[Rfam]
About this RNA
A member of the RNA family "Small nucleolar RNA SNORD101" from Xiphophorus maculatus, 74 nucleotides long. The family has 26 seed sequences and 658 matches in Rfam 15.1. The organism belongs to Xiphophorus, within Eukaryota. A search with the family's covariance model found it, with a score of 53 bits. By type it is a C/D-box small nucleolar RNA.

RNA sequence: GCUUAAAUGAUGAUUCAGUUCUUUGUCGGAUACCCCUUCACUCUACAAUGAGUGAGAUUUUCCAUCUGAUGUGC
Numbered sequence: 001g002c003u004u005a006a007a008u009g010a011u012g013a014u015u016c017a018g019u020u021c022u023u024u025g026u027c028g029g030a031u032a033c034c035c036c037u038u039c040a041c042u043c044u045a046c047a048a049u050g051a052g053u054g055a056g057a058u059u060u061u062c063c064a065u066c067u068g069a070u071g072u073g074c
Base pairs, nucleotide, nucleotide: 001074002073004071005070